[Rfam]
Nucleotides: 037
Stems, first nucleotide, its partner, number of pairs: 004018005
Number, partner (000 for none) and nucleotide at each position: 001000u002000g003000u004018u005017c006016c007015c008014c009000c010000u011000u012000c013000g014008g015007g016006g017005g018004g019000a020000u021000c022000c023000c024000u025000a026000g027000a028000a029000g030000u031000c032000g033000g034000a035000a036000a037000c

Shown here is a 37-nucleotide sequence from Synechococcus sp. JA-2-3B'a(2-13), a member of the family "CRISPR RNA direct repeat element". Rfam links the family to the GO term defense response. Pairs were carried over by alignment from the consensus structure, which was predicted with WAR.